[Rfam]
RNA: MIR2617 microRNA precursor family
RNA sequence: AUGUAGUGUGACAUGCCCGUUUGGGUUAUUACUCUGAUGAAUUAUCAUUAAUUAAUUGAUUUGGAAUAACGGGGUGUUACAUCCUUA
Numbered sequence: 001a002u003g004u005a006g007u008g009u010g011a012c013a014u015g016c017c018c019g020u021u022u023g024g025g026u027u028a029u030u031a032c033u034c035u036g037a038u039g040a041a042u043u044a045u046c047a048u049u050a051a052u053u054a055a056u057u058g059a060u061u062u063g064g065a066a067u068a069a070c071g072g073g074g075u076g077u078u079a080c081a082u083c084c085u086u087a
Base pairs, nucleotide, nucleotide: 002087003086006083007081008080009079010078011077012076013075014074016073017072018071019070020069021068